[Rfam]
A member of the RNA family "U12 minor spliceosomal RNA" from Erpetoichthys calabaricus, 150 nucleotides long. The pairing is the family consensus, mapped onto this sequence. The organism belongs to Erpetoichthys, within Eukaryota. Clan: U2 clan. It scores 146 bits against the family's covariance model.
RNA sequence: AUGCCUUAAACUAAUGAGUAAGGAAAAUAACGAUUCGGGGUGACGCCCGGAUCCUCGCUCAUACAUGCGAGAGGAAUUUUUGAACGGGUUCAGGUUGCUCCGAGGUGACCCGCCUACUUUGUGGGAUGCCUUUGUGUUGUGAUCUACCCG
Numbered sequence: 001a002u003g004c005c006u007u008a009a010a011c012u013a014a015u016g017a018g019u020a021a022g023g024a025a026a027a028u029a030a031c032g033a034u035u036c037g038g039g040g041u042g043a044c045g046c047c048c049g050g051a052u053c054c055u056c057g058c059u060c061a062u063a064c065a066u067g068c069g070a071g072a073g074g075a076a077u078u079u080u081u082g083a084a085c086g087g088g089u090u091c092a093g094g095u096u097g098c099u100c101c102g103a104g105g106u107g108a109c110c111c112g113c114c115u116a117c118u119u120u121g122u123g124g125g126a127u128g129c130c131u132u133u134g135u136g137u138u139g140u141g142a143u144c145u146a147c148c149c150g
Base pairs, nucleotide, nucleotide: 004023005022006021007020008019032053033052034051035050036049037048038047039046054071055070056069057068058067085150086149087148088147089146092145093144094143095142096141097140098139101134102133103131104130105129106128107127109125110124111123112122113121
Dot-bracket structure: ...(((((..........)))))........((((((((......))))))))(((((........))))).............(((((..(((((((..(((((((.(((((.......))))).))))).))....))))))))))))